[Rfam]
Record summary:
Shown here is a 94-nucleotide sequence from Paenibacillus silvestris, a member of the family "c-di-GMP-I-GGC riboswitch aptamer". The family has 40 seed sequences and 1,298 matches in Rfam 15.1. It scores 60 bits against the family's covariance model. Clan: c-di-GMP_I riboswitch clan. A reference for the family is Smith et al. (2010), "Structural and biochemical determinants of ligand binding by the c-di-GMP riboswitch ", Biochemistry.
RNA sequence: CUCGACAAUGGCAAAACUGACGAAAGUCAGUGACGCAAAGCUACAGGGGCUACCUUGUUCUGAAAACGGACUCGUUGCCAGCCAGCUGCCGAAC
Numbered sequence: 001c002u003c004g005a006c007a008a009u010g011g012c013a014a015a016a017c018u019g020a021c022g023a024a025a026g027u028c029a030g031u032g033a034c035g036c037a038a039a040g041c042u043a044c045a046g047g048g049g050c051u052a053c054c055u056u057g058u059u060c061u062g063a064a065a066a067c068g069g070a071c072u073c074g075u076u077g078c079c080a081g082c083c084a085g086c087u088g089c090c091g092a093a094c
Stems, first nucleotide, its partner, number of pairs: 003091002011036002016031006034081001039087004046083002048079003